[Rfam]
RNA: mir-1994 microRNA precursor family
RNA sequence: CUCACGGGAAGACAUUCUGGCUCCAUGUGUAACUUAUCAUGAGACAGUGUGUCCUCCCUUGAGU
Numbered sequence: 001c002u003c004a005c006g007g008g009a010a011g012a013c014a015u016u017c018u019g020g021c022u023c024c025a026u027g028u029g030u031a032a033c034u035u036a037u038c039a040u041g042a043g044a045c046a047g048u049g050u051g052u053c054c055u056c057c058c059u060u061g062a063g064u
Base pairs, nucleotide, nucleotide: 002062003061006057007056008055011052013051014050015049017047018046019045021043022042025040026039027038